[Rfam]
RNA sequence: GUGGCGGUGUAGUCCCAGGUGGCGUCGGCGUCCAGCAGGGCGUUCUCGCCGAAGUGGUCGCCGUCGGCGAGCGUGGCGACCGCCACCUCGUCGCCGUACUUGCCGGUCGUGGUCUGGCCGAUCCGGCCGUGCGCGAUGAGGAGGAUCUCCUCGGCCGGGGUGCCGCGCCGGACGAGCACCUCACCGGGCCGGAACUCGCGCUGGACGCACCGGUUGGCGAUCGCGGCCAGUACCUCGUCGUCCUCGAAGCCGCGCAGCAGGGCCAGUUCACCGAGCUCACGGGGGAUCACCCGGACCUCGGCGCCGUCCUGGACGAACUCGAUGCGCCCGUCGCCGACGGUGUAGGUGAGCCGGCGGUUCACCCGGUAGGCGCCGCCCUUGGUCUCCACCCAGGGCAGCAUCCGCAGCAGCCAGCGGGAGGUGAUCUCCUGCAUCUGCGGGGCGGAUUUGGUCGUGGUGGAAAGGUUGCGGGCCGCCGCAGUGCUCAGGCUGGCCUGCCGGGGCGGCUCGA
Numbered sequence: 001g002u003g004g005c006g007g008u009g010u011a012g013u014c015c016c017a018g019g020u021g022g023c024g025u026c027g028g029c030g031u032c033c034a035g036c037a038g039g040g041c042g043u044u045c046u047c048g049c050c051g052a053a054g055u056g057g058u059c060g061c062c063g064u065c066g067g068c069g070a071g072c073g074u075g076g077c078g079a080c081c082g083c084c085a086c087c088u089c090g091u092c093g094c095c096g097u098a099c100u101u102g103c104c105g106g107u108c109g110u111g112g113u114c115u116g117g118c119c120g121a122u123c124c125g126g127c128c129g130u131g132c133g134c135g136a137u138g139a140g141g142a143g144g145a146u147c148u149c150c151u152c153g154g155c156c157g158g159g160g161u162g163c164c165g166c167g168c169c170g171g172a173c174g175a176g177c178a179c180c181u182c183a184c185c186g187g188g189c190c191g192g193a194a195c196u197c198g199c200g201c202u203g204g205a206c207g208c209a210c211c212g213g214u215u216g217g218c219g220a221u222c223g224c225g226g227c228c229a230g231u232a233c234c235u236c237g238u239c240g241u242c243c244u245c246g247a248a249g250c251c252g253c254g255c256a257g258c259a260g261g262g263c264c265a266g267u268u269c270a271c272c273g274a275g276c277u278c279a280c281g282g283g284g285g286a287u288c289a290c291c292c293g294g295a296c297c298u299c300g301g302c303g304c305c306g307u308c309c310u311g312g313a314c315g316a317a318c319u320c321g322a323u324g325c326g327c328c329c330g331u332c333g334c335c336g337a338c339g340g341u342g343u344a345g346g347u348g349a350g351c352c353g354g355c356g357g358u359u360c361a362c363c364c365g366g367u368a369g370g371c372g373c374c375g376c377c378c379u380u381g382g383u384c385u386c387c388a389c390c391c392a393g394g395g396c397a398g399c400a401u402c403c404g405c406a407g408c409a410g411c412c413a414g415c416g417g418g419a420g421g422u423g424a425u426c427u428c429c430u431g432c433a434u435c436u437g438c439g440g441g442g443c444g445g446a447u448u449u450g451g452u453c454g455u456g457g458u459g460g461a462a463a464g465g466u467u468g469c470g471g472g473c474c475g476c477c478g479c480a481g482u483g484c485u486c487a488g489g490c491u492g493g494c495c496u497g498c499c500g501g502g503g504c505g506g507c508u509c510g511a
Stems, first nucleotide, its partner, number of pairs: 006390004011385002014382002018328002021325001025322004031316002036312001038310003047303006054233002058229001060227005065111002075103001077102003082097002086093001117222001122217002127212001129210002131206001134203002138199001140197001143196002149192002154189003158185002161178002164174002166171001235295002240290002244286002250282003254278001256277003260271001262269001329342004353377005360372001362370002391431005397425001399423003403418001405416001407415001437476004443470002446467001447465003452460001477510002481504002484501001486497003
RNA: Saccharopolyspora sRNA 350